[Rfam]
RNA sequence: AUUGUAGUUUAAUCGGUCAGAGCACCGCCUUGUCAAGGCGGAAGUUGCGGGUUCGAGCCCCGUCAAU
Numbered sequence: 001a002u003u004g005u006a007g008u009u010u011a012a013u014c015g016g017u018c019a020g021a022g023c024a025c026c027g028c029c030u031u032g033u034c035a036a037g038g039c040g041g042a043a044g045u046u047g048c049g050g051g052u053u054c055g056a057g058c059c060c061c062g063u064c065a066a067u
Stems, first nucleotide, its partner, number of pairs: 001067004007023004025041005047063005
RNA: tRNA
Organism: Solanum commersonii